Hepatitis C virus (HCV) cis-acting replication element (CRE): a 176-nucleotide RNA sequence from Orthohepacivirus hominis. By type it is a cis-regulatory element. The source organism's lineage runs through Viruses, Kitrinoviricota, Flasuviricetes, Amarillovirales and Orthohepacivirus.

RNA sequence: CCAAUACCGGGGGCGUCCCAGUUGGACUUGUCCAAUUGGUUCGUUGCCGGCUACAGCGGGGGAGACAUAUAUCACAGCGUGUCUCGUGCCCGGUCCCGCUGGUUCAUAGGUUGCCUACUCCUACUUAGCGUAGGGGUAGGCAUCUACCUGCUCCCCAACCGAUGAGCGGGGAGCCC
Numbered sequence: 001c002c003a004a005u006a007c008c009g010g011g012g013g014c015g016u017c018c019c020a021g022u023u024g025g026a027c028u029u030g031u032c033c034a035a036u037u038g039g040u041u042c043g044u045u046g047c048c049g050g051c052u053a054c055a056g057c058g059g060g061g062g063a064g065a066c067a068u069a070u071a072u073c074a075c076a077g078c079g080u081g082u083c084u085c086g087u088g089c090c091c092g093g094u095c096c097c098g099c100u101g102g103u104u105c106a107u108a109g110g111u112u113g114c115c116u117a118c119u120c121c122u123a124c125u126u127a128g129c130g131u132a133g134g135g136g137u138a139g140g141c142a143u144c145u146a147c148c149u150g151c152u153c154c155c156c157a158a159c160c161g162a163u164g165a166g167c168g169g170g171g172a173g174c175c176c
Stems, first nucleotide, its partner, number of pairs: 007050004012045002018039009055100007062085006112142013150174007159166001